[Rfam]
RNA sequence: GAACUGGAUAGAGGCUGCGGUAAAUAUCAGUAAUAUAUUGGAGUUUGUGGAAACGUAGAUAAUAUAUAAAAGGAUUUGCUGCCGAAGAGGGCUUCCCCCACAGGGAAAACUUCUGGUCAUAGUGGAGAAGAUCCAUAUGACUCUCAUUUUAUGGGGAGCUAUCGGUGAU
Numbered sequence: 001g002a003a004c005u006g007g008a009u010a011g012a013g014g015c016u017g018c019g020g021u022a023a024a025u026a027u028c029a030g031u032a033a034u035a036u037a038u039u040g041g042a043g044u045u046u047g048u049g050g051a052a053a054c055g056u057a058g059a060u061a062a063u064a065u066a067u068a069a070a071a072g073g074a075u076u077u078g079c080u081g082c083c084g085a086a087g088a089g090g091g092c093u094u095c096c097c098c099c100a101c102a103g104g105g106a107a108a109a110c111u112u113c114u115g116g117u118c119a120u121a122g123u124g125g126a127g128a129a130g131a132u133c134c135a136u137a138u139g140a141c142u143c144u145c146a147u148u149u150u151a152u153g154g155g156g157a158g159c160u161a162u163c164g165g166u167g168a169u
Stems, first nucleotide, its partner, number of pairs: 007163005017082009033067008086114005093107005115142007123135004144154004
The record is a 169-nucleotide sequence from Propionigenium maris, which matches "Lysine riboswitch aptamer" in Rfam. NCBI's taxonomy places the organism under Bacteria, Fusobacteriati, Fusobacteriia, Fusobacteriaceae, Propionigenium maris. The family's consensus secondary structure is taken from published work.